[Rfam]
RNA: MIR950 microRNA precursor family
Organism: Pinus densata
RNA sequence: GAAGGUGAUCUUUACAUCUGGUCCACGGUGGUUUAUUGUUCAUCGUUUGUUUAUGAUAAACCAUCGUGCCGCAGAUGAUAAGAGCACCUUC
Number, nucleotide and partner (000 for none) at each position: 001g091002a090003a089004g088005g087006u086007g085008a000009u083010c082011u081012u080013u000014a000015c077016a076017u075018c074019u073020g072021g000022u000023c000024c068025a067026c066027g065028g064029u063030g062031g061032u060033u059034u058035a057036u056037u055038g054039u053040u000041c000042a000043u000044c000045g000046u000047u000048u000049g000050u000051u000052u000053a039054u038055g037056a036057u035058a034059a033060a032061c031062c030063a029064u028065c027066g026067u025068g024069c000070c000071g000072c020073a019074g018075a017076u016077g015078a000079u000080a012081a011082g010083a009084g000085c007086a006087c005088c004089u003090u002091c001